[Rfam]
RNA sequence: UUCUUAUCAAGAGCGGCGGAGGGACUGGCCCGAUGAAGCCCGGCAACCACCGUAAAUCGGAUGGUGCUAAUUCCUGCAGGACAAUCGUCCUGGGAGAUAAGAG
Numbered sequence: 001u002u003c004u005u006a007u008c009a010a011g012a013g014c015g016g017c018g019g020a021g022g023g024a025c026u027g028g029c030c031c032g033a034u035g036a037a038g039c040c041c042g043g044c045a046a047c048c049a050c051c052g053u054a055a056a057u058c059g060g061a062u063g064g065u066g067c068u069a070a071u072u073c074c075u076g077c078a079g080g081a082c083a084a085u086c087g088u089c090c091u092g093g094g095a096g097a098u099a100a101g102a103g
Stems, first nucleotide, its partner, number of pairs: 001103008013041001015040003021031003025076001027074002042068004047064002050060003072095001077092006
SAM riboswitch aptamer (S box leader): a 103-nucleotide RNA sequence from Alicyclobacillus acidoterrestris. NCBI's taxonomy places the organism under Bacteria, Bacillati, Bacillota, Alicyclobacillaceae, Alicyclobacillus. Rfam describes the family as follows. The SAM riboswitch is found upstream of a number of genes which code for proteins involved in methionine or cysteine biosynthesis in Gram-positive bacteria. The family's consensus secondary structure is taken from published work.